The family of this 203-nucleotide RNA sequence from Myotis lucifugus is "Small nucleolar RNA SNORA74".
RNA sequence: UCCAGCAGUGGUCAUCUCUCCAGACAGAAUCAUGCCUGUGAGGGUGUUACACUGCUGGGAGAGGAACGCCUUGUCUUCUUCCUCCAGUUGCUCCCUUCACUGCUCUGGUGACGUGUGGCACUGGUGCAAGCCAGUACUGUGCUUCCUCGAGAGUGAGCUAAGCAUCACUUUCGCUGCUUAGUUGUAGUGUGGGAGCAGACACA
Numbered sequence: 001u002c003c004a005g006c007a008g009u010g011g012u013c014a015u016c017u018c019u020c021c022a023g024a025c026a027g028a029a030u031c032a033u034g035c036c037u038g039u040g041a042g043g044g045u046g047u048u049a050c051a052c053u054g055c056u057g058g059g060a061g062a063g064g065a066a067c068g069c070c071u072u073g074u075c076u077u078c079u080u081c082c083u084c085c086a087g088u089u090g091c092u093c094c095c096u097u098c099a100c101u102g103c104u105c106u107g108g109u110g111a112c113g114u115g116u117g118g119c120a121c122u123g124g125u126g127c128a129a130g131c132c133a134g135u136a137c138u139g140u141g142c143u144u145c146c147u148c149g150a151g152a153g154u155g156a157g158c159u160a161a162g163c164a165u166c167a168c169u170u171u172c173g174c175u176g177c178u179u180a181g182u183u184g185u186a187g188u189g190u191g192g193g194a195g196c197a198g199a200c201a202c203a
Stems, first nucleotide, its partner, number of pairs: 001059009011050002016044005021038003025034001068137001071134003075130002083126001085124001089118001092115001094113001096111001098110004140197007156183002159180006
Rfam classes the family as an H/ACA-box small nucleolar RNA. Clan: SNORA74 clan. The base pairs follow the family's consensus structure, which was predicted with PFOLD. From the family's description: U19 belongs to the H/ACA class of snoRNAs. snoRNAs bind a number of proteins (including dyskerin, Gar1p and Nop10p in the case of the H/ACA class) to form snoRNP complexes. The organism belongs to Myotis, within Eukaryota.